Rfam assigns this 85-nucleotide sequence from Saimiri boliviensis to the family "mir-4436 microRNA precursor family". A search with the family's covariance model found it, with a score of 74 bits. NCBI's taxonomy places the organism under Eukaryota, Dipnotetrapodomorpha, Theria, Euarchontoglires, Saimiri boliviensis.

RNA sequence: UCCUCACUUGUCCACUUCUGCCUGCUCUGCCCAAAUCAUGGAGCGAAUUCGAGGGGCAGGGCAGGCAGAAGUGGACAAAUACGGC
Numbered sequence: 001u002c003c004u005c006a007c008u009u010g011u012c013c014a015c016u017u018c019u020g021c022c023u024g025c026u027c028u029g030c031c032c033a034a035a036u037c038a039u040g041g042a043g044c045g046a047a048u049u050c051g052a053g054g055g056g057c058a059g060g061g062c063a064g065g066c067a068g069a070a071g072u073g074g075a076c077a078a079a080u081a082c083g084g085c
Stems, first nucleotide, its partner, number of pairs: 002084002006080001008078012021065012036045001